A member of the RNA family "tRNA" from Martelella alba, 82 nucleotides long. NCBI's taxonomy places the organism under Bacteria, Alphaproteobacteria, Hyphomicrobiales, Aurantimonadaceae, Martelella. About the family: Transfer RNA (tRNA) molecules are approximately 80 nucleotides in length. A search with the family's covariance model found it, with a score of 57 bits. Clan: tRNA clan.

RNA sequence: GCCCCUUUGGCGGAAUUGGUAGACGCGCCUGACUCAAAAUCAGGUUCCGAGAGGAGUGCUGGUUCGAUCCCGGCAAGGGGCA
Dot-bracket structure: (((((((..(((...........))).(((((.......))))).............(((((.......)))))))))))).